[Rfam]
RNA sequence: CCAACAUGGGCAUCCGGCAAGGUUGCUCUUGUCCGGCUCUGUCCUUGUGGCAUAUGGGAGCGUAGUCCUUUGUGUCUAUGACGUACAGUCCCGUUCCAUGACGUUGGAGAGAAAGUGUGUCCCCGGCUUUAAGUUGGUGAGGACGGCACCCUGUAUAUUCCUAGACCUUCUCAGUGUGUAUAGUGACUGAGGAGAUAAACCAUGCAGGGUACAGUU
Numbered sequence: 001c002c003a004a005c006a007u008g009g010g011c012a013u014c015c016g017g018c019a020a021g022g023u024u025g026c027u028c029u030u031g032u033c034c035g036g037c038u039c040u041g042u043c044c045u046u047g048u049g050g051c052a053u054a055u056g057g058g059a060g061c062g063u064a065g066u067c068c069u070u071u072g073u074g075u076c077u078a079u080g081a082c083g084u085a086c087a088g089u090c091c092c093g094u095u096c097c098a099u100g101a102c103g104u105u106g107g108a109g110a111g112a113a114a115g116u117g118u119g120u121c122c123c124c125g126g127c128u129u130u131a132a133g134u135u136g137g138u139g140a141g142g143a144c145g146g147c148a149c150c151c152u153g154u155a156u157a158u159u160c161c162u163a164g165a166c167c168u169u170c171u172c173a174g175u176g177u178g179u180a181u182a183g184u185g186a187c188u189g190a191g192g193a194g195a196u197a198a199a200c201c202a203u204g205c206a207g208g209g210u211a212c213a214g215u216u
Base pairs, nucleotide, nucleotide: 001107002106003105004104005103007101008044009043010042011041012040014036015035016034018031019030020029021028047099048098049097050096056092057091058090059089060086062084063083065079066078150208151207152206153205154204155203156202167194168193169192170191171190172189176181